[Rfam]
RNA: Eukaryotic large subunit ribosomal RNA, nucleotides 1601 to 2040
Organism: Basidiobolus meristosporus
RNA sequence: GGUAGUAGCAAAUAUUCAAAUGAGAACUUUGAAGACUGAAGUGGAGAAAGGUUCCGUGUGAACAGCAGUUGGACACGGGUUAGUCGAUCCUAAGAGAUAGGGAAGCUCCGUUUUAAAGCGUGCGAUUCAACGCACCACCUAUCGAAAGGGAAUCAGGUUAAUAUUCCUGAACCAGGAAAUGGAUUAUGUAUUACGGCAACGUAAAUGAACUCGGAGACGCCAGCACAUGCCCUGGGAAGAGUUUUCUUUUCUUUUUAACAGCUUAUCACCCUGAAAUCAGAUUAACUGGAGCUAGGGUUCAAUAGCUGGUAGAGCAUUACAACUCUGUAGUGUCCGGUGCGUAUGUGACGGCCCUUGAAAAUCCGAGGGAAAGAAUCAGUUUCAUGCCUGGUCGUACUCAUAACCGCAGCAGGUCUCCAAGGUGAACAGCCUCUAGUUGA
Numbered sequence: 001g002g003u004a005g006u007a008g009c010a011a012a013u014a015u016u017c018a019a020a021u022g023a024g025a026a027c028u029u030u031g032a033a034g035a036c037u038g039a040a041g042u043g044g045a046g047a048a049a050g051g052u053u054c055c056g057u058g059u060g061a062a063c064a065g066c067a068g069u070u071g072g073a074c075a076c077g078g079g080u081u082a083g084u085c086g087a088u089c090c091u092a093a094g095a096g097a098u099a100g101g102g103a104a105g106c107u108c109c110g111u112u113u114u115a116a117a118g119c120g121u122g123c124g125a126u127u128c129a130a131c132g133c134a135c136c137a138c139c140u141a142u143c144g145a146a147a148g149g150g151a152a153u154c155a156g157g158u159u160a161a162u163a164u165u166c167c168u169g170a171a172c173c174a175g176g177a178a179a180u181g182g183a184u185u186a187u188g189u190a191u192u193a194c195g196g197c198a199a200c201g202u203a204a205a206u207g208a209a210c211u212c213g214g215a216g217a218c219g220c221c222a223g224c225a226c227a228u229g230c231c232c233u234g235g236g237a238a239g240a241g242u243u244u245u246c247u248u249u250u251c252u253u254u255u256u257a258a259c260a261g262c263u264u265a266u267c268a269c270c271c272u273g274a275a276a277u278c279a280g281a282u283u284a285a286c287u288g289g290a291g292c293u294a295g296g297g298u299u300c301a302a303u304a305g306c307u308g309g310u311a312g313a314g315c316a317u318u319a320c321a322a323c324u325c326u327g328u329a330g331u332g333u334c335c336g337g338u339g340c341g342u343a344u345g346u347g348a349c350g351g352c353c354c355u356u357g358a359a360a361a362u363c364c365g366a367g368g369g370a371a372a373g374a375a376u377c378a379g380u381u382u383c384a385u386g387c388c389u390g391g392u393c394g395u396a397c398u399c400a401u402a403a404c405c406g407c408a409g410c411a412g413g414u415c416u417c418c419a420a421g422g423u424g425a426a427c428a429g430c431c432u433c434u435a436g437u438u439g440a
Stems, first nucleotide, its partner, number of pairs: 015033006034438004043418004049398002054078006063071002085394003089149002094143002096112003100109003121134002153170005173390004179385004183380002192203004210367006219352003224347007232337003235255006259308005268298006277289004315332007404413002420432004